[Rfam]
RNA sequence: UGCCCGGUCUUUGCCCCGGAUCAACCCCUGUGGUUAUGACGGUUUCCGACUUGGGGAAAUGGACUUGUUGUGUUGUUCGUAUGUUUGGUAGGAAAAGUUCUACUAAACGCGGGCAAUGCUUCGCACAUUU
Dot-bracket structure: ..(((((((......(((....((((.....))))....))).....))).))))..........((..(((.(((((((......(((.((......)).)))....))))))).)))..)).......
The record is a 130-nucleotide RNA from Caenorhabditis japonica, which matches "Caenorhabditis snoRNA ceN43" in Rfam.
The family's consensus secondary structure was predicted with RNAalifold.
The family has 4 seed sequences and 12 matches in Rfam 15.1.
NCBI's taxonomy places the organism under Eukaryota, Nematoda, Rhabditida, Rhabditomorpha, Caenorhabditis.
Its family is annotated with RNA processing and nucleolus in the Gene Ontology.